TPP riboswitch aptamer (THI element): a 114-nucleotide RNA from Paraburkholderia caffeinitolerans. It scores 68 bits against the family's covariance model. Rfam links the family to the GO term thiamine pyrophosphate binding. Lineage of the source: Bacteria > Pseudomonadati > Betaproteobacteria > Burkholderiales > Paraburkholderia.

[Rfam]
RNA sequence: CUGACGAAACAGGGGUGCUUCACUGGUAUGCCUGGCAUGCCGCAGUGAGGCUGAGAGAGACCCUUCGCACCCGAUCCGGGUAAUACCGGCGCGGGAAGUUUCCGGAAAGUCUUG
Numbered sequence: 001c002u003g004a005c006g007a008a009a010c011a012g013g014g015g016u017g018c019u020u021c022a023c024u025g026g027u028a029u030g031c032c033u034g035g036c037a038u039g040c041c042g043c044a045g046u047g048a049g050g051c052u053g054a055g056a057g058a059g060a061c062c063c064u065u066c067g068c069a070c071c072c073g074a075u076c077c078g079g080g081u082a083a084u085a086c087c088g089g090c091g092c093g094g095g096a097a098g099u100u101u102c103c104g105g106a107a108a109g110u111c112u113u114g
Stems, first nucleotide, its partner, number of pairs: 006102005011064004016058001017051009070095004076089004